[Rfam]
RNA: Rhodo-rpoB RNA
RNA sequence: CGGUCGGGAGGCUUCCGGUGGGACGGAAGCCAGGCAUAGACCGGAACUUUGUCGUCUCUGAGGGUGUGCCGCUGGGGCCCGACAGCGCCGCAUG
Dot-bracket structure: (((((....((((((((......)))))))).......))))).....................((((((((((........)))))..)))))